[Rfam]
RNA sequence: AUUGUAUCAAGAGAGGUGGAGGGACUGGCCCUUUGAAACCUCGGCAGCAGGUUCAUUUUUGAAUACUGUGCCACUUCCUGCAAGCUUUAUAGCUUGAAAGAUAGAAU
Numbered sequence: 001a002u003u004g005u006a007u008c009a010a011g012a013g014a015g016g017u018g019g020a021g022g023g024a025c026u027g028g029c030c031c032u033u034u035g036a037a038a039c040c041u042c043g044g045c046a047g048c049a050g051g052u053u054c055a056u057u058u059u060u061g062a063a064u065a066c067u068g069u070g071c072c073a074c075u076u077c078c079u080g081c082a083a084g085c086u087u088u089a090u091a092g093c094u095u096g097a098a099a100g101a102u103a104g105a106a107u
Stems, first nucleotide, its partner, number of pairs: 001107003005103004013042005021031003025080001027078002043072004048068002050064001052062002076099001081096006
This 107-nucleotide RNA from Bacillus anthracis belongs to the Rfam family "SAM riboswitch aptamer (S box leader)". Lineage of the source: Bacteria > Bacillati > Bacilli > Bacillus > Bacillus anthracis. The sequence is in the family's curated seed alignment.